This 67-nucleotide sequence from Bacillus sp. NRRL B-14911 belongs to the Rfam family "Bacillaceae-1 RNA". The family's consensus secondary structure is taken from published work. Rfam's curators put it in the seed alignment.
RNA sequence: UAUCGAGGAACGCGGACUAAGUACGCCACGUCGUAUGGCAACGUCCUCAUGACCCGCUUCCUGCGGG
Numbered sequence: 001u002a003u004c005g006a007g008g009a010a011c012g013c014g015g016a017c018u019a020a021g022u023a024c025g026c027c028a029c030g031u032c033g034u035a036u037g038g039c040a041a042c043g044u045c046c047u048c049a050u051g052a053c054c055c056g057c058u059u060c061c062u063g064c065g066g067g
Base pairs, nucleotide, nucleotide: 012048014046015045016044017043025039026038027037028036053067054066055065056064057063